[Rfam]
RNA sequence: UAUUUCGGAAAGAAUUGGACCUCGAGACCCAAAUCAGGAAGAAAAUGGACAGAAGAAGAAGGGUGAAAUAGUUAAUUUAAUUUAACAAAUUGUGAGCCGAAAAGGGUAUUGGCCACACAGUGAGAAACCCGCACUGGGCCCUUCAACUUCG
Numbered sequence: 001u002a003u004u005u006c007g008g009a010a011a012g013a014a015u016u017g018g019a020c021c022u023c024g025a026g027a028c029c030c031a032a033a034u035c036a037g038g039a040a041g042a043a044a045a046u047g048g049a050c051a052g053a054a055g056a057a058g059a060a061g062g063g064u065g066a067a068a069u070a071g072u073u074a075a076u077u078u079a080a081u082u083u084a085a086c087a088a089a090u091u092g093u094g095a096g097c098c099g100a101a102a103a104g105g106g107u108a109u110u111g112g113c114c115a116c117a118c119a120g121u122g123a124g125a126a127a128c129c130c131g132c133a134c135u136g137g138g139c140c141c142u143u144c145a146a147c148u149u150c151g
Stems, first nucleotide, its partner, number of pairs: 001047005014034002016031003052150004058144006072085004091117004096113005118136005
Shown here is a 151-nucleotide RNA, a member of the family "IMES-5 RNA". Pairs were carried over by alignment from the consensus structure, which is taken from published work.